[Rfam]
RNA sequence: GGCAGAUGAUGUCCUUUUCUCACGAUGGUCUGCGGAUGUCUCUGGGCAGUGCCGAUAAUGCCAAAAGCUCUACUGAUGCCAGGAG
Numbered sequence: 001g002g003c004a005g006a007u008g009a010u011g012u013c014c015u016u017u018u019c020u021c022a023c024g025a026u027g028g029u030c031u032g033c034g035g036a037u038g039u040c041u042c043u044g045g046g047c048a049g050u051g052c053c054g055a056u057a058a059u060g061c062c063a064a065a066a067g068c069u070c071u072a073c074u075g076a077u078g079c080c081a082g083g084a085g
Stems, first nucleotide, its partner, number of pairs: 001080004
Rfam assigns this 85-nucleotide sequence from Castor canadensis to the family "Small nucleolar RNA SNORD35". The match comes from Rfam's covariance-model search (80 bits). U35 is a C/D box snoRNA located in intron 6 of ribosomal protein L13A and intron 3 of ribosomal protein S11 in humans and at homologous positions in mouse and chicken ribosomal protein genes. U35 guides the methylation of 2'-O-ribose sites in 28S rRNA. The family is grouped with related families in Rfam's "SNORD35 clan". Lineage of the source: Eukaryota > Deuterostomia > Euteleostomi > Eutheria > Castor. It is annotated as a C/D-box small nucleolar RNA. The base pairs follow the family's consensus structure, which was predicted with PFOLD.